[Rfam]
RNA sequence: GACGCCAGAAGAUCAGUUUCUUAAGCGUACAUGGUUCUUGCCUUUUACCAGAACCAUCCGGGAACUGUCUUUGCUAAUGGUGUUUUUUUUCAUUUUUUGGAACUCUCCCAUGUGCUAAAUC
Numbered sequence: 001g002a003c004g005c006c007a008g009a010a011g012a013u014c015a016g017u018u019u020c021u022u023a024a025g026c027g028u029a030c031a032u033g034g035u036u037c038u039u040g041c042c043u044u045u046u047a048c049c050a051g052a053a054c055c056a057u058c059c060g061g062g063a064a065c066u067g068u069c070u071u072u073g074c075u076a077a078u079g080g081u082g083u084u085u086u087u088u089u090u091c092a093u094u095u096u097u098u099g100g101a102a103c104u105c106u107c108c109c110a111u112g113u114g115c116u117a118a119a120u121c
Stems, first nucleotide, its partner, number of pairs: 003082004009071003014067007031057008100121001102120001104118001
The family of this 121-nucleotide sequence from Clavispora lusitaniae is "U5 spliceosomal RNA". The organism belongs to Clavispora lusitaniae, within Eukaryota. Pairs were carried over by alignment from the consensus structure, which is taken from published work. The family has 180 seed sequences and 28,527 matches in Rfam 15.1. The family's RNA type in Rfam is spliceosomal small nuclear RNA. U5 RNA is a component of both types of known spliceosome. The precise function of this molecule is unknown, though it is known that the 5' loop is required for splice site selection and p220 binding, and that both the 3' stem-loop and the Sm site are important for Sm protein binding and cap methylation.